[Rfam]
RNA sequence: GUGCUAAAGUGCUUAUAGUGCAGGUAGUAUUUCUAUAAUCUACUGCAGUGUGAGCACUUGAAGUAC
Numbered sequence: 001g002u003g004c005u006a007a008a009g010u011g012c013u014u015a016u017a018g019u020g021c022a023g024g025u026a027g028u029a030u031u032u033c034u035a036u037a038a039u040c041u042a043c044u045g046c047a048g049u050g051u052g053a054g055c056a057c058u059u060g061a062a063g064u065a066c
Stems, first nucleotide, its partner, number of pairs: 001066001003064003007059011019047003023044005
The family of this 66-nucleotide sequence from Cyprinus carpio is "mir-17 microRNA precursor family". On this family, see Lagos-Quintana et al., Science 2001: "Identification of novel genes coding for small expressed RNAs". This family represents the microRNA (miRNA) precursor mir-17, family, which includes mir-20, mir-91, and mir-103. miRNAs are transcribed as ~70nt precursors (modelled here) and subsequently processed by the Dicer enzyme to give a ~22nt product. In this case the mature sequence comes from the 3' arm of the precursor. Rfam links the family to the GO terms miRNA-mediated post-transcriptional gene silencing and RISC complex.